[Rfam]
Notes:
The record is a 278-nucleotide sequence from Nannospalax galili, which matches "Mason-Pfizer monkey virus packaging signal" in Rfam. From the family's description: This family represents a group of sequences that are related to the Mason-Pfizer monkey virus (MPMV) packaging signal. A search with the family's covariance model found it, with a score of 132 bits. The source organism's lineage runs through Eukaryota, Tetrapoda, Eutheria, Muroidea and Nannospalax.
Nucleotides: 278
Base pairs, nucleotide, nucleotide: 006031007030013025014024036053038047086130088128089126090125097118099115102112103111138155142153144151145150162205163204164203165201166200167199212254213253214252215251216250217249218248219247222240223239224238225237226236263278264277265276266275267274
Number, partner (000 for none) and nucleotide at each position: 001000u002000g003000g004000c005000g006031c007030c008000c009000a010000g011000c012000a013025u014024g015000a016000g017000g018000g019000c020000u021000g022000g023000a024014u025013a026000c027000g028000g029000a030007g031006g032000a033000u034000c035000c036053a037000g038047u039000g040000a041000g042000g043000g044000a045000a046000g047038a048000a049000g050000a051000u052000g053036u054000c055000c056000c057000c058000a059000a060000a061000g062000g063000a064000a065000c066000a067000u068000g069000u070000u071000c072000c073000a074000c075000a076000a077000c078000a079000a080000u081000u082000c083000u084000u085000c086130a087000c088128u089126c090125u091000g092000g093000a094000c095000a096000c097118a098000c099115c100000a101000c102112g103111g104000g105000a106000a107000c108000c109000u110000g111103c112102c113000u114000c115099g116000c117000c118097u119000a120000c121000a122000a123000c124000c125090a126089g127000a128088a129000a130086u131000a132000a133000g134000u135000a136000c137000c138155g139000a140000c141000g142153u143000c144151u145150g146000a147000u148000u149000a150145u151144g152000u153142g154000a155138c156000a157000a158000g159000a160000a161000u162205u163204a164203a165201g166200c167199a168000g169000g170000c171000a172000u173000g174000a175000a176000a177000u178000u179000u180000a181000u182000g183000u184000u185000c186000a187000g188000c189000a190000a191000u192000u193000g194000c195000a196000g197000a198000a199167u200166g201165c202000c203164u204163u205162a206000c207000g208000g209000a210000u211000g212254c213253a214252a215251g216250g217249a218248g219247u220000a221000a222240a223239g224238g225237u226236u227000a228000a229000a230000a231000u232000a233000g234000a235000g236226g237225a238224u239223c240222u241000a242000u243000u244000g245000a246000a247219g248218u249217u250216c251215u252214u253213u254212g255000a256000a257000u258000u259000u260000a261000u262000u263278a264277a265276g266275g267274a268000a269000a270000c271000c272000u273000g274267u275266c276265c277264u278263u